[Rfam]
RNA sequence: UUAGAGCCAUCAACAGGGGGGCAGCGCAGGAGACCGCCAUGUUUAUCGAUGAAGUGGUACUCGCCGGAAUUCUCACGGUCGGUCUGAUGAUCGUGUUCUGUGGCGGUGUCGGAUAUUUCAUCUGGAAGGACUCGCACAAGCGCAAGCAAGGCUGAGCCCUUCCGGCAACGAGCACGCAAGGCACUUCGGGCGACUUCGGUCGCCCUUUUUUUUC
Number, nucleotide and partner (000 for none) at each position: 001u000002u000003a000004g000005a000006g000007c000008c105009a000010u103011c102012a000013a000014c000015a000016g000017g000018g000019g000020g000021g000022c000023a000024g000025c000026g000027c000028a000029g000030g000031a000032g000033a000034c000035c000036g000037c000038c000039a000040u000041g000042u000043u000044u000045a000046u000047c000048g000049a000050u000051g000052a000053a000054g064055u063056g062057g000058u000059a000060c000061u000062c056063g055064c054065c000066g000067g000068a000069a000070u000071u000072c000073u000074c000075a000076c000077g000078g000079u000080c000081g092082g091083u090084c089085u000086g000087a000088u000089g084090a083091u082092c081093g000094u000095g000096u000097u000098c000099u000100g000101u000102g011103g010104c000105g008106g000107u000108g000109u000110c000111g000112g000113a000114u000115a000116u000117u000118u000119c000120a000121u000122c000123u000124g000125g000126a000127a000128g000129g000130a000131c000132u000133c000134g000135c000136a000137c000138a000139a000140g000141c000142g000143c000144a000145a000146g000147c000148a000149a000150g000151g000152c000153u000154g000155a000156g000157c000158c000159c000160u000161u000162c000163c000164g000165g000166c000167a000168a000169c000170g000171a000172g182173c181174a000175c180176g000177c000178a000179a000180g175181g173182c172183a000184c000185u000186u000187c000188g205189g204190g203191c202192g201193a200194c199195u000196u000197c000198g000199g194200u193201c192202g191203c190204c189205c188206u000207u000208u000209u000210u000211u000212u000213u000214c000

Annotation: Rfam assigns this 214-nucleotide RNA sequence from Pseudomonas indica to the family "PhrS". The family's consensus secondary structure was predicted with CMfinder. By type it is a small RNA.